[Rfam]
About this RNA
Rfam assigns this 128-nucleotide sequence from Miscanthus lutarioriparius to the family "mir-166 microRNA precursor family". Gene Ontology terms of the family: RISC complex and miRNA-mediated post-transcriptional gene silencing. This family represents the plant microRNA (miRNA) precursor mir-166. The match comes from Rfam's covariance-model search (72 bits). The source organism's lineage runs through Eukaryota, Streptophyta, Embryophyta, Euphyllophyta and Miscanthus. For this family Rfam cites "MicroRNAs in plants" (Reinhart et al., Genes Dev, 2002).
RNA sequence: GUUAAGGGGGUUGUUGUCUGGUUCAAGGUCGCCACAGCAGGCAAAGCCCAUUUCGCUUAGCAUGCAGCAUGGGUGUAUCGAUCUAUUGCCCUAUUGGUGAUCUCGGACCAGGCUUCAAUCCCUUUAAC
Numbered sequence: 001g002u003u004a005a006g007g008g009g010g011u012u013g014u015u016g017u018c019u020g021g022u023u024c025a026a027g028g029u030c031g032c033c034a035c036a037g038c039a040g041g042c043a044a045a046g047c048c049c050a051u052u053u054c055g056c057u058u059a060g061c062a063u064g065c066a067g068c069a070u071g072g073g074u075g076u077a078u079c080g081a082u083c084u085a086u087u088g089c090c091c092u093a094u095u096g097g098u099g100a101u102c103u104c105g106g107a108c109c110a111g112g113c114u115u116c117a118a119u120c121c122c123u124u125u126a127a128c
Stems, first nucleotide, its partner, number of pairs: 001128013016113006024105001026103009